A member of the RNA family "msiK RNA" from Dietzia sp. ANT_WB102, 59 nucleotides long.
RNA sequence: UCGUGUUGCCCUCUAUCUCGGAUCGUCCGGCACGUUCCUGCCGGUGAAGGGAAAAUCUG
Numbered sequence: 001u002c003g004u005g006u007u008g009c010c011c012u013c014u015a016u017c018u019c020g021g022a023u024c025g026u027c028c029g030g031c032a033c034g035u036u037c038c039u040g041c042c043g044g045u046g047a048a049g050g051g052a053a054a055a056u057c058u059g
Stems, first nucleotide, its partner, number of pairs: 009051004014046002027044006

Pairs were carried over by alignment from the consensus structure, which is taken from published work.